A member of the RNA family "Small nucleolar RNA SNORA64/SNORA10 family" from Sus scrofa, 135 nucleotides long.
It is annotated as an H/ACA-box small nucleolar RNA.
The family is grouped with related families in Rfam's "SNORA64 clan".
The source organism's lineage runs through Eukaryota, Eumetazoa, Amniota, Suina and Sus.
Rfam's curators write: This family belongs to the H/ACA class of small nucleolar RNAs (snoRNAs) which act as guides in the the modification of uridines to pseudouridines. This family includes the human snoRNAs U64 and ACA10 and mouse MBI-29.
The base pairs follow the family's consensus structure, which is taken from published work.
On this family, see Narayanan et al., EMBO J 1999: "Nucleolar localization signals of box H/ACA small nucleolar RNAs".

[Rfam]
RNA sequence: ACUCUCUCAGCUCUGCAUAGUUGCACUUUCUACUCACGCGUGUGACUUUCGUAAAAGAGAGAGAGAACAAGGAUCUCCUCGGAACCUCAGGUUGGCCUUGCAGUGGCCAGUCUUGGUUUGAGGGGCGCCACAGAC
Numbered sequence: 001a002c003u004c005u006c007u008c009a010g011c012u013c014u015g016c017a018u019a020g021u022u023g024c025a026c027u028u029u030c031u032a033c034u035c036a037c038g039c040g041u042g043u044g045a046c047u048u049u050c051g052u053a054a055a056a057g058a059g060a061g062a063g064a065g066a067a068c069a070a071g072g073a074u075c076u077c078c079u080c081g082g083a084a085c086c087u088c089a090g091g092u093u094g095g096c097c098u099u100g101c102a103g104u105g106g107c108c109a110g111u112c113u114u115g116g117u118u119u120g121a122g123g124g125g126c127g128c129c130a131c132a133g134a135c
Stems, first nucleotide, its partner, number of pairs: 003066006011059004019047008075125005081119003089113003093109005